[Rfam]
RNA sequence: CCUGCCCCAGCUCGUGUUGCAGGCGUGGCUGCAGUGCCACGUUUGUGUCAUUCAGUGGCAGAGAAGAAAAGACGAGGUCUUCCCCUUGUGCUCUGACCCACAUGGGCUCCCAGGAUUGCUCAACAAC
Numbered sequence: 001c002c003u004g005c006c007c008c009a010g011c012u013c014g015u016g017u018u019g020c021a022g023g024c025g026u027g028g029c030u031g032c033a034g035u036g037c038c039a040c041g042u043u044u045g046u047g048u049c050a051u052u053c054a055g056u057g058g059c060a061g062a063g064a065a066g067a068a069a070a071g072a073c074g075a076g077g078u079c080u081u082c083c084c085c086u087u088g089u090g091c092u093c094u095g096a097c098c099c100a101c102a103u104g105g106g107c108u109c110c111c112a113g114g115a116u117u118g119c120u121c122a123a124c125a126a127c
Stems, first nucleotide, its partner, number of pairs: 002061005007055001010052001014048002019046004024041006071124001074121003081115003088110001090107004

The record is a 127-nucleotide RNA sequence from Formicarius rufipectus, which matches "Small nucleolar RNA SNORA17" in Rfam. A search with the family's covariance model found it, with a score of 56 bits. For this family Rfam cites "Mapping to nucleotide resolution of pseudouridine residues in large subunit ribosomal RNAs from representative eukaryotes, prokaryotes, archaebacteria, mitochondria and chloroplasts" (Ofengand and Bakin, J Mol Biol, 1997). The family's consensus secondary structure was predicted with RNAalifold. The organism belongs to Formicarius, within Eukaryota. Rfam's curators write: snoRNA ACA 17 belongs to the H/ACA family of snoRNAs and is predicted to guide pseudouridylation of the 28S rRNA at positions U4659 and U4598. Clan: SNORA17 clan. The family's RNA type in Rfam is H/ACA-box small nucleolar RNA.